Source information:
Rfam assigns this 97-nucleotide RNA sequence from Pelagibaculum spongiae to the family "Bacterial small signal recognition particle RNA".
RNA sequence: CGCUGGUCCCCCCGCAACGAUAGGAUACGAACUCCGCCAGGCCCGGAAGGGAGCAACGGUAGUAUCUGAUUCGUGUGCCGGGGUGUGGCUGGCGAGC
Numbered sequence: 001c002g003c004u005g006g007u008c009c010c011c012c013c014g015c016a017a018c019g020a021u022a023g024g025a026u027a028c029g030a031a032c033u034c035c036g037c038c039a040g041g042c043c044c045g046g047a048a049g050g051g052a053g054c055a056a057c058g059g060u061a062g063u064a065u066c067u068g069a070u071u072c073g074u075g076u077g078c079c080g081g082g083g084u085g086u087g088g089c090u091g092g093c094g095a096g097c
Stems, first nucleotide, its partner, number of pairs: 004091005010083005015075001017074004023067006034059003042051003

It scores 74 bits against the family's covariance model. For this family Rfam cites "SRPDB: Signal Recognition Particle Database" (Rosenblad et al., Nucleic Acids Res, 2003). The family is grouped with related families in Rfam's "SRP clan". The family's consensus secondary structure is taken from published work. The signal recognition particle (SRP) is a universally conserved ribonucleoprotein involved in the co-translational targeting of proteins to membranes. Rfam classes the family as a non-coding RNA gene.